RNA sequence: GCCGGGCUGGCGGAAUGGGUAGACGCACGGGACUUAAAAUCCUGUGGACGAAGGUCCGUGCGGGUUCGAGUCCCGCGUCCGGCA
Numbered sequence: 001g002c003c004g005g006g007c008u009g010g011c012g013g014a015a016u017g018g019g020u021a022g023a024c025g026c027a028c029g030g031g032a033c034u035u036a037a038a039a040u041c042c043u044g045u046g047g048a049c050g051a052a053g054g055u056c057c058g059u060g061c062g063g064g065u066u067c068g069a070g071u072c073c074c075g076c077g078u079c080c081g082g083c084a
Base pairs, nucleotide, nucleotide: 001083002082003081004080005079006078007077010026011025012024028044029043030042031041032040060076061075062074063073064072